[Rfam]
RNA sequence: CCCAGCGGUAGUCAGCUGUGCAGGCCAGCCCGUGCCUGAGCUAGUGUUACUCUGCUGGAAGAGAAAGGUGCUGUGUUUGUGCUUCAUCAGGUUUGGCUGUUUUAGUGAAGCCUGCUGUGCAGCACAGGUCCAGCCGAGCCCUCUGAGAGUGGUCUGUGCUCACACAGUGAGGCAGGCCUAGUCUGGGGGCGAACACU
Numbered sequence: 001c002c003c004a005g006c007g008g009u010a011g012u013c014a015g016c017u018g019u020g021c022a023g024g025c026c027a028g029c030c031c032g033u034g035c036c037u038g039a040g041c042u043a044g045u046g047u048u049a050c051u052c053u054g055c056u057g058g059a060a061g062a063g064a065a066a067g068g069u070g071c072u073g074u075g076u077u078u079g080u081g082c083u084u085c086a087u088c089a090g091g092u093u094u095g096g097c098u099g100u101u102u103u104a105g106u107g108a109a110g111c112c113u114g115c116u117g118u119g120c121a122g123c124a125c126a127g128g129u130c131c132a133g134c135c136g137a138g139c140c141c142u143c144u145g146a147g148a149g150u151g152g153u154c155u156g157u158g159c160u161c162a163c164a165c166a167g168u169g170a171g172g173c174a175g176g177c178c179u180a181g182u183c184u185g186g187g188g189g190c191g192a193a194c195a196c197u
Stems, first nucleotide, its partner, number of pairs: 002058007011050002015045004021038005070134004079125005085117002088114002091111002093108001096106003138190005151178003155174003159171003
The record is a 197-nucleotide sequence from Sinocyclocheilus rhinocerous, which matches "Small nucleolar RNA SNORA74" in Rfam. Its Rfam clan is "SNORA74 clan". Gene Ontology terms of the family: RNA processing and nucleolus. The family's consensus secondary structure was predicted with PFOLD. Rfam describes the family as follows. U19 belongs to the H/ACA class of snoRNAs. snoRNAs bind a number of proteins (including dyskerin, Gar1p and Nop10p in the case of the H/ACA class) to form snoRNP complexes. This class are thought to guide the sites of modification of uridines to pseudouridines by forming direct base pairing interactions with substrate RNAs. Targets may include ribosomal and spliceosomal RNAs but the exact functions of many snoRNAs, including U19, are not confirmed. Co-precipitation of U19 snoRNA with RNase MRP RNA suggests that U19 may be involved in pre-rRNA processing. Taxonomically the source falls in Sinocyclocheilus (Eukaryota, Bilateria, Teleostei, Ostariophysi).